RNA sequence: AUCGUGCGGUUAUAUACCGACGCCCACAAUUCGUGUUGCUCACUUUUCUUUUUCUUUUUCCAUGGAAUGGUUUGAGCGUCAUACGUGGGCCAGAGCCAUAUUGGACAUCUUAGUGCCCUUACAGGAAUAGUCAUAUUGAUACUUUUUCUGUGGGUCGGUAGUUCAGAUAGCU
Numbered sequence: 001a002u003c004g005u006g007c008g009g010u011u012a013u014a015u016a017c018c019g020a021c022g023c024c025c026a027c028a029a030u031u032c033g034u035g036u037u038g039c040u041c042a043c044u045u046u047u048c049u050u051u052u053u054c055u056u057u058u059u060c061c062a063u064g065g066a067a068u069g070g071u072u073u074g075a076g077c078g079u080c081a082u083a084c085g086u087g088g089g090c091c092a093g094a095g096c097c098a099u100a101u102u103g104g105a106c107a108u109c110u111u112a113g114u115g116c117c118c119u120u121a122c123a124g125g126a127a128u129a130g131u132c133a134u135a136u137u138g139a140u141a142c143u144u145u146u147u148c149u150g151u152g153g154g155u156c157g158g159u160a161g162u163u164c165a166g167a168u169a170g171c172u
Stems, first nucleotide, its partner, number of pairs: 022090006038077005046067004101166006119153009129143002

The record is a 172-nucleotide RNA from Schizosaccharomyces pombe, which matches "small nucleolar RNA snR35" in Rfam. It is annotated as an H/ACA-box small nucleolar RNA. Rfam's curators put it in the seed alignment. Rfam 15.1 lists 75 matches to the family in 66 species. Taxonomically the source falls in Schizosaccharomyces (Eukaryota, Dikarya, Taphrinomycotina, Schizosaccharomycetes). Rfam links the family to the GO terms nucleolus and RNA processing.